RNA sequence: GUCCAGUGAUGAAAUUCUGUCAUGCACCACUCAGACAUUGUUGUAUGUUGAGAAACAGACACCACACCAAGUUUUAAUCUGAGGAC
Numbered sequence: 001g002u003c004c005a006g007u008g009a010u011g012a013a014a015u016u017c018u019g020u021c022a023u024g025c026a027c028c029a030c031u032c033a034g035a036c037a038u039u040g041u042u043g044u045a046u047g048u049u050g051a052g053a054a055a056c057a058g059a060c061a062c063c064a065c066a067c068c069a070a071g072u073u074u075u076a077a078u079c080u081g082a083g084g085a086c
Stems, first nucleotide, its partner, number of pairs: 001086004